RNA sequence: AAAGGACGGGCGUCCAAAUAAUGCCUCGCGCUAUUCCCUGUACGUCAAGCUGUGACCCCCGCUAUGGUAGGGGUAGCCUCGGAGCCUUUGCUCCUGCAGGAGUACGUGCACGGAAACUGUGGGGGU
Number, nucleotide and partner (000 for none) at each position: 001a089002a088003a087004g086005g085006a000007c082008g000009g080010g045011c044012g043013u042014c000015c040016a039017a000018a000019u000020a000021a000022u000023g031024c030025c000026u000027c000028g000029c000030g024031c023032u000033a000034u000035u000036c000037c000038c000039u016040g015041u000042a013043c012044g011045u010046c000047a000048a000049g077050c076051u000052g000053u000054g000055a000056c000057c073058c072059c071060c070061g000062c000063u000064a000065u000066g000067g000068u000069a000070g060071g059072g058073g057074u000075a000076g050077c049078c000079u000080c009081g000082g007083a000084g000085c005086c004087u003088u002089u001090g000091c125092u124093c123094c122095u121096g120097c119098a118099g117100g000101a000102g000103u000104a000105c112106g111107u000108g000109c000110a000111c106112g105113g000114a000115a000116a000117c099118u098119g097120u096121g095122g094123g093124g092125g091126u000

The record is a 126-nucleotide RNA sequence, which matches "Flavobacterium-1 RNA" in Rfam. It is one of the family's seed sequences.